[Rfam]
RNA sequence: AUGUAAGAUAAGAUACUUAUGACUUUAUGACAUGAGUCAGUCGUGAUCUGAUUAUAUCAUCACGUCUUUUUUUGUGCAAUAAGAAAGAACCUGGGGUUUUUGUCCAGGUUCUUUUUUGG
Number, nucleotide and partner (000 for none) at each position: 001a000002u000003g000004u000005a000006a000007g000008a000009u000010a000011a000012g000013a000014u000015a000016c000017u000018u000019a000020u000021g000022a000023c000024u000025u000026u000027a000028u000029g000030a000031c000032a000033u000034g073035a072036g071037u000038c000039a065040g000041u000042c000043g061044u000045g000046a000047u000048c000049u000050g000051a000052u000053u000054a000055u000056a000057u000058c000059a000060u000061c043062a000063c000064g000065u039066c000067u000068u000069u000070u000071u036072u035073u034074g000075u000076g000077c000078a000079a000080u000081a000082a000083g115084a114085a113086a112087g111088a110089a109090c108091c107092u106093g105094g104095g000096g000097u000098u000099u000100u000101u000102g000103u000104c094105c093106a092107g091108g090109u089110u088111c087112u086113u085114u084115u083116u000117u000118g000119g000
The record is a 119-nucleotide sequence from Paenibacillus albilobatus, which matches "Bacillus sRNA ncr1015" in Rfam. The literature on the family includes a 2010 paper in Nucleic Acids Res by Irnov et al., "Identification of regulatory RNAs in Bacillus subtilis". It scores 101 bits against the family's covariance model. Pairs were carried over by alignment from the consensus structure, which is taken from published work. The organism belongs to Paenibacillus, within Bacteria.